Annotation:
The record is a 128-nucleotide sequence from Rhizobium album, which matches "Alphaproteobacterial sRNA ar35" in Rfam. Lineage of the source: Bacteria > Alphaproteobacteria > Hyphomicrobiales > Rhizobiaceae > Rhizobium. The pairing is the family consensus, mapped onto this sequence. It scores 65 bits against the family's covariance model.

Nucleotides: 128
Stems, first nucleotide, its partner, number of pairs: 002031005045092006052083004058077002061075003095126001097124011
Number, partner (000 for none) and nucleotide at each position: 001000a002031g003030g004029u005028c006027u007000u008000c009000a010000a011000a012000a013000c014000c015000u016000c017000g018000a019000a020000c021000c022000g023000g024000a025000a026000u027006g028005g029004g030003c031002c032000a033000u034000g035000a036000c037000a038000g039000g040000c041000a042000u043000a044000c045092u046091c047090g048089c049088u050087u051000c052083c053082g054081c055080c056000u057000u058077u059076g060000a061075c062074c063073a064000c065000g066000g067000a068000u069000g070000u071000a072000c073063u074062g075061g076059c077058a078000c079000u080055g081054g082053c083052g084000u085000c086000g087050a088049a089048g090047c091046g092045a093000a094000u095126g096000a097124g098123g099122a100121a101120a102119g103118g104117u105116c106115g107114g108000g109000c110000u111000u112000g113000c114107c115106c116105g117104g118103c119102c120101u121100u122099u123098u124097u125000g126095c127000u128000u

The family's RNA type in Rfam is small RNA. On this family, see del Val et al., RNA Biol 2012: "A survey of sRNA families in alpha-proteobacteria".